[Rfam]
RNA: TeloSII non coding RNA 33
RNA sequence: ACAGAGCUAGUUUGCAAAUUCUGAAUACAAAAAAAGAAAAAACUACACUCUCACUCUUUAUUUACAGCAAAACACAUACCAACAUAUCCACACCCAGAGUGUUUGUUUCACAUCACACCCAAAUACAUAAGGUAAAUAAAAGAGAAUUCUUUCAAAAUUUCAAGGUAAAAAAAAGGUGCAAAUGUAUAUUUUACUAAACUAGAGAAGCCUCCUCCUGAAGUUUCUGGUAGUUGAUUGAUAAGUACGAACUAGAAGACCGACACCAAUCCCAAGACCAACACAGACACCUAGUCCAAU
Numbered sequence: 001a002c003a004g005a006g007c008u009a010g011u012u013u014g015c016a017a018a019u020u021c022u023g024a025a026u027a028c029a030a031a032a033a034a035a036g037a038a039a040a041a042a043c044u045a046c047a048c049u050c051u052c053a054c055u056c057u058u059u060a061u062u063u064a065c066a067g068c069a070a071a072a073c074a075c076a077u078a079c080c081a082a083c084a085u086a087u088c089c090a091c092a093c094c095c096a097g098a099g100u101g102u103u104u105g106u107u108u109c110a111c112a113u114c115a116c117a118c119c120c121a122a123a124u125a126c127a128u129a130a131g132g133u134a135a136a137u138a139a140a141a142g143a144g145a146a147u148u149c150u151u152u153c154a155a156a157a158u159u160u161c162a163a164g165g166u167a168a169a170a171a172a173a174a175g176g177u178g179c180a181a182a183u184g185u186a187u188a189u190u191u192u193a194c195u196a197a198a199c200u201a202g203a204g205a206a207g208c209c210u211c212c213u214c215c216u217g218a219a220g221u222u223u224c225u226g227g228u229a230g231u232u233g234a235u236u237g238a239u240a241a242g243u244a245c246g247a248a249c250u251a252g253a254a255g256a257c258c259g260a261c262a263c264c265a266a267u268c269c270c271a272a273g274a275c276c277a278a279c280a281c282a283g284a285c286a287c288c289u290a291g292u293c294c295a296a297u
Stems, first nucleotide, its partner, number of pairs: 011218002014215001022064006029057001035051003098133001100131001102129001104127002107123002142214003146210001149207004160203002163200002176187004220288001222286001223284004227279002230275003233268005242261002245259002249255001